Shown here is a 127-nucleotide RNA sequence from Hordeum vulgare, a member of the family "Small nucleolar RNA snoR77".
Rfam 15.1 lists 649 matches to the family in 221 species.
It is annotated as an H/ACA-box small nucleolar RNA.
For this family Rfam cites "Experimental RNomics: identification of 140 candidates for small non-messenger RNAs in the plant Arabidopsis thaliana" (Marker et al., Curr Biol, 2002).
Its family is annotated with RNA processing and nucleolus in the Gene Ontology.
[Rfam]
RNA sequence: AGGCAGCCUCUUUGCCAUUGAGGUGGCAUUGGAGGUGUUGCGUUGCUCGGAUUGUGCUCUUCUGAUUGGUUGAGAGGGUGGCUCCUGCUUCCCUCCCUGAAGCUGGUCUAGUAGUUUUAAGGACAUU
Numbered sequence: 001a002g003g004c005a006g007c008c009u010c011u012u013u014g015c016c017a018u019u020g021a022g023g024u025g026g027c028a029u030u031g032g033a034g035g036u037g038u039u040g041c042g043u044u045g046c047u048c049g050g051a052u053u054g055u056g057c058u059c060u061u062c063u064g065a066u067u068g069g070u071u072g073a074g075a076g077g078g079u080g081g082c083u084c085c086u087g088c089u090u091c092c093c094u095c096c097c098u099g100a101a102g103c104u105g106g107u108c109u110a111g112u113a114g115u116u117u118u119a120a121g122g123a124c125a126u127u
Base pairs, nucleotide, nucleotide: 002039003038004037005036007035008034009032010031013028014027015026016025017024052120053119056116058114064108065107066106067105069103070102071101074095075094076093077092078091